[Rfam]
RNA: msiK RNA
RNA sequence: GGGUGGGUUCCAUUCACAAAGGAUCGUCCGGCACGUACCUGCCGGUGAAGGAGAAAAUC
Numbered sequence: 001g002g003g004u005g006g007g008u009u010c011c012a013u014u015c016a017c018a019a020a021g022g023a024u025c026g027u028c029c030g031g032c033a034c035g036u037a038c039c040u041g042c043c044g045g046u047g048a049a050g051g052a053g054a055a056a057a058u059c
Base pairs, nucleotide, nucleotide: 010051011050013049014048015047016046028045029044030043031042032041033040